[Rfam]
RNA sequence: CUAACCUGCGCGGGAGAGACUGACGGGCCGGUCGCAGCCCAUGCCGUGACUGCCCGAAAGCGCCGAAGGAGCAACCGCCCCGGAAACUCUCAGGCACCGAGGACCGCGUGGGGAUG
Numbered sequence: 001c002u003a004a005c006c007u008g009c010g011c012g013g014g015a016g017a018g019a020c021u022g023a024c025g026g027g028c029c030g031g032u033c034g035c036a037g038c039c040c041a042u043g044c045c046g047u048g049a050c051u052g053c054c055c056g057a058a059a060g061c062g063c064c065g066a067a068g069g070a071g072c073a074a075c076c077g078c079c080c081c082g083g084a085a086a087c088u089c090u091c092a093g094g095c096a097c098c099g100a101g102g103a104c105c106g107c108g109u110g111g112g113g114a115u116g
Base pairs, nucleotide, nucleotide: 006111007110008109009108010107011106012105013104020060021059062095063094064093065091066090069089070088071087075083076082
Glycine riboswitch aptamer: a 116-nucleotide RNA sequence from Pyruvatibacter mobilis. The source organism's lineage runs through Bacteria, Pseudomonadati, Alphaproteobacteria, Hyphomicrobiales and Pyruvatibacter. About the family: This family represents the bacterial glycine riboswitch. Glycine riboswitches usually consist of two metabolite-binding aptamers domains with similar structures in tandem.